The family of this 177-nucleotide sequence from Enterococcus rivorum is "Enterococcus sRNA 2410". Lineage of the source: Bacteria > Bacillati > Bacillota > Enterococcaceae > Enterococcus. It is annotated as a small RNA. It scores 67 bits against the family's covariance model. The literature on the family includes a 2017 paper in Sci Rep by Sinel et al., "Small RNAs in vancomycin-resistant Enterococcus faecium involved in daptomycin response and resistance". Produced as 2 transcripts on Northern blot.

RNA sequence: UUAGCUAUUUUAGAUAAGUUUGUGUUCAUAACAUUAUGGAUGCAGACCUAAACGUUUGUAUCUAUGAUGGCUAGGGGAUUUUGGGACGACUUACAGCCGCGUAGAUGAAAAAUCUAUAGUGGCUUUUAUUUUACACAUUUUUUCUAGGUGUUCACUGUAGAUUUUUUGAAAAUUUAC
Numbered sequence: 001u002u003a004g005c006u007a008u009u010u011u012a013g014a015u016a017a018g019u020u021u022g023u024g025u026u027c028a029u030a031a032c033a034u035u036a037u038g039g040a041u042g043c044a045g046a047c048c049u050a051a052a053c054g055u056u057u058g059u060a061u062c063u064a065u066g067a068u069g070g071c072u073a074g075g076g077g078a079u080u081u082u083g084g085g086a087c088g089a090c091u092u093a094c095a096g097c098c099g100c101g102u103a104g105a106u107g108a109a110a111a112a113u114c115u116a117u118a119g120u121g122g123c124u125u126u127u128a129u130u131u132u133a134c135a136c137a138u139u140u141u142u143u144c145u146a147g148g149u150g151u152u153c154a155c156u157g158u159a160g161a162u163u164u165u166u167u168g169a170a171a172a173u174u175u176a177c
Base pairs, nucleotide, nucleotide: 001074002073003072004071005070006069007068011064012063013062014061015060016059018047019046020045021044022043023042024041025040026039027038028037029036049058050057051056078139080137082135083134085132086131095124096123097122098121099120100119102116103115104114